[Rfam]
RNA sequence: CAAUACCAAGGGUAAAGCUGGAGCAAUCCGGUGGCACAAAGCUAUAGGGACUCACAAGAGUCAGCCAGUUGCGAGU
Numbered sequence: 001c002a003a004u005a006c007c008a009a010g011g012g013u014a015a016a017g018c019u020g021g022a023g024c025a026a027u028c029c030g031g032u033g034g035c036a037c038a039a040a041g042c043u044a045u046a047g048g049g050a051c052u053c054a055c056a057a058g059a060g061u062c063a064g065c066c067a068g069u070u071g072c073g074a075g076u
Stems, first nucleotide, its partner, number of pairs: 012037002017032006040070004047066002049062003
A member of the RNA family "c-di-GMP-I riboswitch aptamer" from Butyrivibrio sp. M55, 76 nucleotides long. The base pairs follow the family's consensus structure, which is taken from published work.